[Rfam]
RNA sequence: UGAUACCAGGGUCAAAAGGUCAUGUGUUUCAUGCUUCCAUGAAAAAACAUGGCUUGGGGACCCGCAAAACAUGAGAAAGCAGCCCGAACAGGGCGGAUUUCGAAUGUUUUUAGGAUUGUGGGAGCACAAAGUGCGUAACAAUCCGCAGGUAUGA
Numbered sequence: 001u002g003a004u005a006c007c008a009g010g011g012u013c014a015a016a017a018g019g020u021c022a023u024g025u026g027u028u029u030c031a032u033g034c035u036u037c038c039a040u041g042a043a044a045a046a047a048c049a050u051g052g053c054u055u056g057g058g059g060a061c062c063c064g065c066a067a068a069a070c071a072u073g074a075g076a077a078a079g080c081a082g083c084c085c086g087a088a089c090a091g092g093g094c095g096g097a098u099u100u101c102g103a104a105u106g107u108u109u110u111u112a113g114g115a116u117u118g119u120g121g122g123a124g125c126a127c128a129a130a131g132u133g134c135g136u137a138a139c140a141a142u143c144c145g146c147a148g149g150u151a152u153g154a
Base pairs, nucleotide, nucleotide: 001154003152004151005150006149007148010062011061012060013059017055018054019053020052021051022050023049024048025047027045028044029042030041031040032039033038066110067109068108069107070106071105072104075101076100077099078098082094083093084092085091113144114143115142116141117140118139119138124134125133126132127131
RNA: Clostridiales-1 RNA
Organism: Anaerobium acetethylicum